[Rfam]
This 68-nucleotide RNA from Pteropus alecto belongs to the Rfam family "mir-290 microRNA precursor family".
The family has 31 seed sequences and 565 matches in Rfam 15.1.

RNA sequence: GUGGAACUCAAACUGUGGGGGCACUUUCUUUUCUGACUACGAAAGUGCCGCCAUUUUUUGAGUUUUAC
Numbered sequence: 001g002u003g004g005a006a007c008u009c010a011a012a013c014u015g016u017g018g019g020g021g022c023a024c025u026u027u028c029u030u031u032u033c034u035g036a037c038u039a040c041g042a043a044a045g046u047g048c049c050g051c052c053a054u055u056u057u058u059u060g061a062g063u064u065u066u067a068c
Stems, first nucleotide, its partner, number of pairs: 004065009015054004020049009